[Rfam]
RNA sequence: CUGUUAGAGGAAUGAUGUAUUAUUCUAGAGCUCUGAAGCUGCUGACGUUCCUUGAUUCUGCAUCAGAGAUUGACAUCAAAAG
Numbered sequence: 001c002u003g004u005u006a007g008a009g010g011a012a013u014g015a016u017g018u019a020u021u022a023u024u025c026u027a028g029a030g031c032u033c034u035g036a037a038g039c040u041g042c043u044g045a046c047g048u049u050c051c052u053u054g055a056u057u058c059u060g061c062a063u064c065a066g067a068g069a070u071u072g073a074c075a076u077c078a079a080a081a082g
Stems, first nucleotide, its partner, number of pairs: 001082002004079002006076001
The record is an 82-nucleotide RNA sequence from Hibiscus syriacus, which matches "Small nucleolar RNA J33" in Rfam. On this family, see Chen et al., Nucleic Acids Res 2003: "The high diversity of snoRNAs in plants: identification and comparative study of 120 snoRNA genes from Oryza sativa".